This 131-nucleotide sequence from Planomicrobium sp. YIM 101495 belongs to the Rfam family "PyrR binding site". Rfam's curators write: This family represents the PyrR binding site and terminator structure. This RNA structure is found upstream of a variety of genes involved in pyrimidine biosynthesis and transport. The alignment also includes a portion of the antiterminator structure. The organism belongs to Planomicrobium, within Bacteria.

[Rfam]
RNA sequence: GUCACCUUUAAUAACAGUCCAGAGAGGCUGAGAAGGAACUACGUUACGCAACAAGCUGGGAGUGUGUCUCCCGGGCUGUAUUUUUCUGCGCAUCCAUCCUUUUACCUCUUUAGGUAAAAGGAUUUUUUUGU
Numbered sequence: 001g002u003c004a005c006c007u008u009u010a011a012u013a014a015c016a017g018u019c020c021a022g023a024g025a026g027g028c029u030g031a032g033a034a035g036g037a038a039c040u041a042c043g044u045u046a047c048g049c050a051a052c053a054a055g056c057u058g059g060g061a062g063u064g065u066g067u068c069u070c071c072c073g074g075g076c077u078g079u080a081u082u083u084u085u086c087u088g089c090g091c092a093u094c095c096a097u098c099c100u101u102u103u104a105c106c107u108c109u110u111u112a113g114g115u116a117a118a119a120g121g122a123u124u125u126u127u128u129u130g131u
Base pairs, nucleotide, nucleotide: 005036006035007034008033009032015030016029017028018027019026048082051079052078053077056074057073058072059071060070061069062068096123097122098121099120100119101118102117103116104115105114106113